[Rfam]
The record is a 46-nucleotide RNA from Myripristis murdjan, which matches "Histone 3' UTR stem-loop" in Rfam.
RNA sequence: UCAAAGGCUCUUUUAAGAGCCACCCACUUCUGUAAAAGGGUUAACU
Numbered sequence: 001u002c003a004a005a006g007g008c009u010c011u012u013u014u015a016a017g018a019g020c021c022a023c024c025c026a027c028u029u030c031u032g033u034a035a036a037a038g039g040g041u042u043a044a045c046u
Stems, first nucleotide, its partner, number of pairs: 006021006
The family's consensus secondary structure is taken from published work. Rfam's curators write: The mRNAs of metazoan histone genes lack a poly-A tail. 3' end processing occurs at a site between a highly conserved stem-loop (modelled by this family) and a purine rich region around 20 nts downstream (the histone downstream element, or HDE).